[Rfam]
Rfam assigns this 380-nucleotide part of an RNA from Pseudomonas aeruginosa to the family "Bacterial large subunit ribosomal RNA". Gene Ontology terms of the family: structural constituent of ribosome and ribosome. The base pairs follow the family's consensus structure, which is taken from published work. The source organism's lineage runs through Bacteria, Pseudomonadati, Gammaproteobacteria, Pseudomonadaceae and Pseudomonas aeruginosa.

RNA sequence: GACAAUGGGUGUGAAAAACACCCACGCCGAAAGACCAAGGGUUCCUGCGCAACGUUAAUCGACGCAGGGUUAGUCGGUUCCUAAGGCGAGGCUGAAAAGCGUAGUCGAUGGGAAACAGGUUAAUAUUCCUGUACUUCUGGUUACUGCGAUGGAGGGACGGAGAAGGCUAGGCCAGCUUGGCGUUGGUUGUCCAAGUUUAAGGUGGUAGGCUGAAAUCUUAGGUAAAUCCGGGGUUUCAAGGCCGAGAGCUGAUGACGAGUCGUCUUUUAGAUGACGAAGUGGUUGAUGCCAUGCUUCCAAGAAAAGCUUCUAAGCUUCAGGUAACCAGGAACCGUACCCCAAACCGACACAGGUGGUCGGGUAGAGAAUACCAAGGCGCU
Numbered sequence: 001g002a003c004a005a006u007g008g009g010u011g012u013g014a015a016a017a018a019c020a021c022c023c024a025c026g027c028c029g030a031a032a033g034a035c036c037a038a039g040g041g042u043u044c045c046u047g048c049g050c051a052a053c054g055u056u057a058a059u060c061g062a063c064g065c066a067g068g069g070u071u072a073g074u075c076g077g078u079u080c081c082u083a084a085g086g087c088g089a090g091g092c093u094g095a096a097a098a099g100c101g102u103a104g105u106c107g108a109u110g111g112g113a114a115a116c117a118g119g120u121u122a123a124u125a126u127u128c129c130u131g132u133a134c135u136u137c138u139g140g141u142u143a144c145u146g147c148g149a150u151g152g153a154g155g156g157a158c159g160g161a162g163a164a165g166g167c168u169a170g171g172c173c174a175g176c177u178u179g180g181c182g183u184u185g186g187u188u189g190u191c192c193a194a195g196u197u198u199a200a201g202g203u204g205g206u207a208g209g210c211u212g213a214a215a216u217c218u219u220a221g222g223u224a225a226a227u228c229c230g231g232g233g234u235u236u237c238a239a240g241g242c243c244g245a246g247a248g249c250u251g252a253u254g255a256c257g258a259g260u261c262g263u264c265u266u267u268u269a270g271a272u273g274a275c276g277a278a279g280u281g282g283u284u285g286a287u288g289c290c291a292u293g294c295u296u297c298c299a300a301g302a303a304a305a306g307c308u309u310c311u312a313a314g315c316u317u318c319a320g321g322u323a324a325c326c327a328g329g330a331a332c333c334g335u336a337c338c339c340c341a342a343a344c345c346g347a348c349a350c351a352g353g354u355g356g357u358c359g360g361g362u363a364g365a366g367a368a369u370a371c372c373a374a375g376g377c378g379c380u
Stems, first nucleotide, its partner, number of pairs: 006024006025378004033358004039338002044068006053061002075334004080111002085106003089102001091100003115132005135330011146315002151310004159297004165290003170284005175196006197258002201250003208243003213236007221229002260277005266271001344353002360372004